The record is a 75-nucleotide sequence from Crocodylus porosus, which matches "Mammalian CPEB3 ribozyme" in Rfam. Rfam links the family to the GO term RNA nuclease activity. It scores 41 bits against the family's covariance model. The source organism's lineage runs through Eukaryota, Bilateria, Amniota, Crocodylidae and Crocodylus.
RNA sequence: CCACAAGUUCAAGGUCAGAGCAGAAGUGCUCAUGGUGCAGCCCUGUCAGAUUCCAAUGAAUCUGGAAAUUCUGUU
Numbered sequence: 001c002c003a004c005a006a007g008u009u010c011a012a013g014g015u016c017a018g019a020g021c022a023g024a025a026g027u028g029c030u031c032a033u034g035g036u037g038c039a040g041c042c043c044u045g046u047c048a049g050a051u052u053c054c055a056a057u058g059a060a061u062c063u064g065g066a067a068a069u070u071c072u073g074u075u
Stems, first nucleotide, its partner, number of pairs: 013042003019075007026038003047064007